Rfam assigns this 104-nucleotide RNA sequence from Planosporangium mesophilum to the family "mraW RNA".
Nucleotides: 104
Base pairs, nucleotide, nucleotide: 010091011090012089013088014087015086018083019082021080022079023078024077025076027074028073029072030071031070033068034067036065038063039062040061041060042059043058045056
Number, partner (000 for none) and nucleotide at each position: 001000g002000u003000c004000g005000u006000g007000g008000c009000g010091u011090a012089c013088c014087g015086c016000g017000a018083g019082a020000u021080c022079u023078c024077c025076a026000g027074c028073c029072g030071c031070u032000a033068g034067u035000g036065c037000u038063c039062c040061u041060g042059g043058c044000u045056c046000u047000a048000c049000u050000u051000c052000c053000c054000c055000a056045g057000u058043g059042c060041c061040a062039g063038g064000c065036g066000g067034a068033c069000g070031a071030g072029c073028g074027g075000a076025u077024g078023g079022g080021g081000a082019u083018c084000u085000g086015g087014c088013g089012g090011u091010a092000c093000g094000u095000c096000g097000a098000c099000c100000c101000g102000g103000c104000c
By type it is a cis-regulatory element. Taxonomically the source falls in Planosporangium (Bacteria, Bacillati, Actinomycetes, Micromonosporales).